The record is a 75-nucleotide RNA sequence from Amantichitinum ursilacus, which matches "Xanthomonas sRNA sX9" in Rfam. The family's consensus secondary structure was predicted with RNAalifold.
RNA sequence: ACGUACAAAACGUACGCUCCGGUUGUUGCGCGCUGGCCGUACCCAGCCUGCACCCGCUCGCUACGCCGGCUGACC
Numbered sequence: 001a002c003g004u005a006c007a008a009a010a011c012g013u014a015c016g017c018u019c020c021g022g023u024u025g026u027u028g029c030g031c032g033c034u035g036g037c038c039g040u041a042c043c044c045a046g047c048c049u050g051c052a053c054c055c056g057c058u059c060g061c062u063a064c065g066c067c068g069g070c071u072g073a074c075c
Stems, first nucleotide, its partner, number of pairs: 002016005020035004048072001050070002053068001
It is annotated as a small RNA. The match comes from Rfam's covariance-model search (48 bits).